SAM riboswitch aptamer (S box leader): a 141-nucleotide sequence from Nakamurella alba.
Rfam links the family to the GO term regulation of gene expression.
The base pairs follow the family's consensus structure, which is taken from published work.
Lineage of the source: Bacteria > Actinomycetota > Actinomycetes > Nakamurellaceae > Nakamurella.
[Rfam]
RNA sequence: ACCUCAUCCAGAGGGGCAGAGGGAUACGGCCCGUUGAAGCCCCGGCAACCGCGUCGGAUGAUCGCGUUCUUCGAGCUCAGCUCGCGAGGCCAUCGACCGAAGGUGCCAAUUCCGUCCCGUCACGAACGGGGAAGAUGAGCA
Number, nucleotide and partner (000 for none) at each position: 001a000002c000003c139004u138005c137006a136007u135008c134009c000010a000011g000012a000013g043014g042015g041016g040017c039018a000019g000020a000021g032022g031023g030024a000025u000026a115027c114028g113029g112030c023031c022032c021033g000034u000035u000036g000037a000038a000039g017040c016041c015042c014043c013044g107045g106046c105047a104048a000049c103050c102051g000052c000053g000054u000055c000056g000057g000058a000059u000060g000061a000062u000063c000064g000065c000066g000067u000068u000069c000070u000071u000072c000073g000074a000075g000076c000077u000078c000079a000080g000081c000082u000083c000084g000085c000086g000087a000088g000089g000090c000091c000092a000093u000094c000095g000096a000097c000098c000099g000100a000101a000102g050103g049104u047105g046106c045107c044108a000109a000110u000111u133112c029113c028114g027115u026116c130117c129118c128119g127120u126121c000122a000123c000124g000125a000126a120127c119128g118129g117130g116131g000132a000133a111134g008135a007136u006137g005138a004139g003140c000141a000